Record summary:
This 126-nucleotide RNA from Cynara cardunculus belongs to the Rfam family "Small nucleolar RNA SNORD14". It scores 69 bits against the family's covariance model. Rfam classes the family as a C/D-box small nucleolar RNA. On this family, see Samarsky et al., Nucleic Acids Res 1996: "An essential domain in Saccharomyces cerevisiae U14 snoRNA is absent in vertebrates, but conserved in other yeasts". U14 small nucleolar RNA (U14 snoRNA) is required for early cleavages of eukaryotic precursor rRNAs. In yeasts, this molecule possess a stem-loop region (known as the Y-domain) which is essential for function. A similar structure, but with a different consensus sequence, is found in plants, but is absent in vertebrates. Lineage of the source: Eukaryota > Embryophyta > Gunneridae > Cynara cardunculus > Cynara cardunculus subsp. cardunculus. Gene Ontology terms of the family: nucleolus and RNA processing.
RNA sequence: UAUCGGUGAUGGAGAUCUCAAGGCUUGUUUCUCAUGAACAUUCGCAGUGGCCGCCUGAUUGAGCUUUCGCCUUCGCCAGGCUUGAGAGCUCGUGUUGCUACUAUCCUUCCUUGGAUGUCUGAGAUU
Numbered sequence: 001u002a003u004c005g006g007u008g009a010u011g012g013a014g015a016u017c018u019c020a021a022g023g024c025u026u027g028u029u030u031c032u033c034a035u036g037a038a039c040a041u042u043c044g045c046a047g048u049g050g051c052c053g054c055c056u057g058a059u060u061g062a063g064c065u066u067u068c069g070c071c072u073u074c075g076c077c078a079g080g081c082u083u084g085a086g087a088g089c090u091c092g093u094g095u096u097g098c099u100a101c102u103a104u105c106c107u108u109c110c111u112u113g114g115a116u117g118u119c120u121g122a123g124a125u126u
Base pairs, nucleotide, nucleotide: 002125003124004123063089064088065087066086067085068084